[Rfam]
RNA sequence: CGUCUGUUUCAGGGCGGGGUGAAAUUCCCCACUGGCGGUGAUAGUCCGCGACCCGAAGCGAAAGCCUCGGCUGAAUGGGUGUGAUUCCCAUACCAACGGUAUAGUCCGGAUGAAAGAAGCAGCAC
Numbered sequence: 001c002g003u004c005u006g007u008u009u010c011a012g013g014g015c016g017g018g019g020u021g022a023a024a025u026u027c028c029c030c031a032c033u034g035g036c037g038g039u040g041a042u043a044g045u046c047c048g049c050g051a052c053c054c055g056a057a058g059c060g061a062a063a064g065c066c067u068c069g070g071c072u073g074a075a076u077g078g079g080u081g082u083g084a085u086u087c088c089c090a091u092a093c094c095a096a097c098g099g100u101a102u103a104g105u106c107c108g109g110a111u112g113a114a115a116g117a118a119g120c121a122g123c124a125c
Stems, first nucleotide, its partner, number of pairs: 004122007017029003031105002033095002035049004044093002053070002075091005097108003

The family of this 125-nucleotide RNA from Harryflintia acetispora is "FMN riboswitch aptamer (RFN element)". Taxonomically the source falls in Harryflintia (Bacteria, Bacillota, Eubacteriales, Oscillospiraceae). Pairs were carried over by alignment from the consensus structure, which is taken from published work.